[Rfam]
RNA: FMN riboswitch aptamer (RFN element)
Organism: Furfurilactobacillus rossiae
RNA sequence: GUUCGUCUUCAGGGCAGGGUGAAAUUCCCGACCGGCGGUGAUAGCCCGCAACUCUCCAUCUGAUGGGGAUUGAUCUUGGUGAAAUUCCAAGGCCGACAGUAAAGUCUGGUAUAAAGAAGAUUGGC
Numbered sequence: 001g002u003u004c005g006u007c008u009u010c011a012g013g014g015c016a017g018g019g020u021g022a023a024a025u026u027c028c029c030g031a032c033c034g035g036c037g038g039u040g041a042u043a044g045c046c047c048g049c050a051a052c053u054c055u056c057c058a059u060c061u062g063a064u065g066g067g068g069a070u071u072g073a074u075c076u077u078g079g080u081g082a083a084a085u086u087c088c089a090a091g092g093c094c095g096a097c098a099g100u101a102a103a104g105u106c107u108g109g110u111a112u113a114a115a116g117a118a119g120a121u122u123g124g125c
Stems, first nucleotide, its partner, number of pairs: 003123001005121006017029003031105002033095002035049004044093002053069002075091005097108003
Dot-bracket structure: ..(.((((((......(((.......))).[[((((((.....[[))))...((.............)).....(((((.......)))))]])).(((....]]))).......)))))).)..